[Rfam]
RNA sequence: AACAACUAAUAAUUUUAUAGGUGGAAUGAUGAACUAACAAUCUGAAACACCUACCAUAAUACUCCGAAUAGCUUUUGAUUAGAUAAAUAUUCAAAUGUUAUAAGCUCGGUGAAGUCGAUUGAGAGCGUACCCAAGUGCUAGUUAAGUAACGGAAAUGUGAAUCAGAGAUGAUCAAGUACGUAAUAGAUUGGUGGUCUACAAA
Numbered sequence: 001a002a003c004a005a006c007u008a009a010u011a012a013u014u015u016u017a018u019a020g021g022u023g024g025a026a027u028g029a030u031g032a033a034c035u036a037a038c039a040a041u042c043u044g045a046a047a048c049a050c051c052u053a054c055c056a057u058a059a060u061a062c063u064c065c066g067a068a069u070a071g072c073u074u075u076u077g078a079u080u081a082g083a084u085a086a087a088u089a090u091u092c093a094a095a096u097g098u099u100a101u102a103a104g105c106u107c108g109g110u111g112a113a114g115u116c117g118a119u120u121g122a123g124a125g126c127g128u129a130c131c132c133a134a135g136u137g138c139u140a141g142u143u144a145a146g147u148a149a150c151g152g153a154a155a156u157g158u159g160a161a162u163c164a165g166a167g168a169u170g171a172u173c174a175a176g177u178a179c180g181u182a183a184u185a186g187a188u189u190g191g192u193g194g195u196c197u198a199c200a201a202a
Stems, first nucleotide, its partner, number of pairs: 018053006031043001033041001054194004064109004068101005074095005080089002116190005125181006131152002139148002156175001158174002161172004